[Rfam]
RNA sequence: GGAUCCGCGAAAGUCCCGCUUCUAGUUCAUUUUUUCAAAUCUUCUAUUCAAAGUUUUGCUGAAAAUUUGAAUAGGAGAUUGGAGAAUUGCACUAGAAGUGGGACUUUCGCGA
Numbered sequence: 001g002g003a004u005c006c007g008c009g010a011a012a013g014u015c016c017c018g019c020u021u022c023u024a025g026u027u028c029a030u031u032u033u034u035u036c037a038a039a040u041c042u043u044c045u046a047u048u049c050a051a052a053g054u055u056u057u058g059c060u061g062a063a064a065a066u067u068u069g070a071a072u073a074g075g076a077g078a079u080u081g082g083a084g085a086a087u088u089g090c091a092c093u094a095g096a097a098g099u100g101g102g103a104c105u106u107u108c109g110c111g112a
Base pairs, nucleotide, nucleotide: 008109009108010107011106012105013104014103015102016101017100018099019098020097021096022095023094024093025092026091028089029088031086032085033084034083035082036081038080039079040078041077042076043075045073046072047071048070049069050068051067052066054065055064056063057062

MIR5185 microRNA precursor family: a 112-nucleotide sequence from Brachypodium distachyon.
The family's consensus secondary structure was predicted with RNAalifold.
Gene Ontology terms of the family: RISC complex and miRNA-mediated post-transcriptional gene silencing.